[Rfam]
RNA sequence: UGUCGCAGAAGAGGUGCGAUAGCUAGGUAGUAAACGUGAGGCCGACGACAGCCUUUGAUCGUUUAUGAGGGAGACUAUCGCCGAGGAAGUGCAUUGUGCGUCGCAAUGGCUUUCGGUUCUUGAGGCUGAAUCCUCGGAACUGUCACCUGUAGGGGUGGAGGGCUUCUGGCAAU
Numbered sequence: 001u002g003u004c005g006c007a008g009a010a011g012a013g014g015u016g017c018g019a020u021a022g023c024u025a026g027g028u029a030g031u032a033a034a035c036g037u038g039a040g041g042c043c044g045a046c047g048a049c050a051g052c053c054u055u056u057g058a059u060c061g062u063u064u065a066u067g068a069g070g071g072a073g074a075c076u077a078u079c080g081c082c083g084a085g086g087a088a089g090u091g092c093a094u095u096g097u098g099c100g101u102c103g104c105a106a107u108g109g110c111u112u113u114c115g116g117u118u119c120u121u122g123a124g125g126c127u128g129a130a131u132c133c134u135c136g137g138a139a140c141u142g143u144c145a146c147c148u149g150u151a152g153g154g155g156u157g158g159a160g161g162g163c164u165u166c167u168g169g170c171a172a173u
Stems, first nucleotide, its partner, number of pairs: 006168006016081007024073001030066007085114005092108005115141006122135004143158006